[Rfam]
A member of the RNA family "MIR8565 microRNA precursor family" from Amborella trichopoda, 152 nucleotides long. Lineage of the source: Eukaryota > Embryophyta > Euphyllophyta > Magnoliopsida > Amborella.

RNA sequence: CCUACACCUAUGUGUGUAGGACCUCAAAGGAUCACUAUUAAAUUUGGCACAGAUCUCUAGAAGAGUUAUCACAUGGAUGUGAGAUUUGAUUUUUCUAAAGAUGUGUCAAAUUUAAUGGUGAUCAUUUGAGAUCCUACACAUAUGGGUGUGGG
Numbered sequence: 001c002c003u004a005c006a007c008c009u010a011u012g013u014g015u016g017u018a019g020g021a022c023c024u025c026a027a028a029g030g031a032u033c034a035c036u037a038u039u040a041a042a043u044u045u046g047g048c049a050c051a052g053a054u055c056u057c058u059a060g061a062a063g064a065g066u067u068a069u070c071a072c073a074u075g076g077a078u079g080u081g082a083g084a085u086u087u088g089a090u091u092u093u094u095c096u097a098a099a100g101a102u103g104u105g106u107c108a109a110a111u112u113u114a115a116u117g118g119u120g121a122u123c124a125u126u127u128g129a130g131a132u133c134c135u136a137c138a139c140a141u142a143u144g145g146g147u148g149u150g151g152g
Stems, first nucleotide, its partner, number of pairs: 002151012015138007023130006030123003034119017053102004058097011069082005